The family of this 135-nucleotide RNA sequence from Caldimonas brevitalea is "Glycine riboswitch aptamer". Rfam links the family to the GO term glycine biosynthetic process. The match comes from Rfam's covariance-model search (55 bits). Rfam 15.1 lists 9,425 matches to the family in 5,228 species.
RNA sequence: ACGAUCCUCACUGGAGAGAGGCCCCAGGUCGACGCUGCAAGUCAGCCGACGAGGGGGCCCACCGAAGGGGCAAGCCGUCUGCGCUGAGCAAGCGCCGCGGCCAAUCUCUCAGGUAAAGCGGACAGCGAGGGCAGC
Numbered sequence: 001a002c003g004a005u006c007c008u009c010a011c012u013g014g015a016g017a018g019a020g021g022c023c024c025c026a027g028g029u030c031g032a033c034g035c036u037g038c039a040a041g042u043c044a045g046c047c048g049a050c051g052a053g054g055g056g057g058c059c060c061a062c063c064g065a066a067g068g069g070g071c072a073a074g075c076c077g078u079c080u081g082c083g084c085u086g087a088g089c090a091a092g093c094g095c096c097g098c099g100g101c102c103a104a105u106c107u108c109u110c111a112g113g114u115a116a117a118g119c120g121g122a123c124a125g126c127g128a129g130g131g132c133a134g135c
Stems, first nucleotide, its partner, number of pairs: 006130004011125003020059006061114003064110002068108003074101005